[Rfam]
RNA sequence: AAAGGGGCAAUAACCAACUUCUUGUUCUCUCAAGAAAUGGGUUAUUGCCCCUUUA
Numbered sequence: 001a002a003a004g005g006g007g008c009a010a011u012a013a014c015c016a017a018c019u020u021c022u023u024g025u026u027c028u029c030u031c032a033a034g035a036a037a038u039g040g041g042u043u044a045u046u047g048c049c050c051c052u053u054u055a
Stems, first nucleotide, its partner, number of pairs: 001054014019036006
Dot-bracket structure: ((((((((((((((....((((((......))))))....)))))))))))))).